[Rfam]
RNA sequence: CCCCCAUGAUGAGACCCCCACGUGUCUGAGCCCCUCCCCAGCCACCAGAGCCUGCAAAGGUUGAACCCACUGGUGCCAGCCGGGGGGGGGCAGAGGAGGACGUCUGGUCCAGAGGGGACAGUCUGAGGGGG
Number, nucleotide and partner (000 for none) at each position: 001c130002c129003c128004c127005c000006a000007u000008g000009a000010u000011g000012a000013g000014a000015c000016c000017c000018c000019c000020a000021c000022g000023u000024g000025u000026c000027u000028g000029a000030g000031c000032c000033c000034c000035u000036c000037c000038c000039c000040a000041g000042c000043c000044a000045c000046c000047a000048g000049a000050g000051c000052c000053u000054g000055c000056a000057a000058a000059g000060g000061u000062u000063g000064a000065a000066c000067c000068c000069a000070c000071u000072g000073g000074u000075g000076c000077c000078a000079g000080c000081c000082g000083g000084g000085g000086g000087g000088g000089g000090g000091c000092a000093g000094a000095g000096g000097a000098g000099g000100a000101c000102g000103u000104c000105u000106g000107g000108u000109c000110c000111a000112g000113a000114g000115g000116g000117g000118a000119c000120a000121g000122u000123c000124u000125g000126a000127g004128g003129g002130g001131g000
Small nucleolar RNA SNORD22: a 131-nucleotide RNA from Ramphastos sulfuratus. Rfam classes the family as a C/D-box small nucleolar RNA. A reference for the family is Tycowski et al. (1994), "Requirement for intron-encoded U22 small nucleolar RNA in 18S ribosomal RNA maturation", Science. The organism belongs to Ramphastos, within Eukaryota.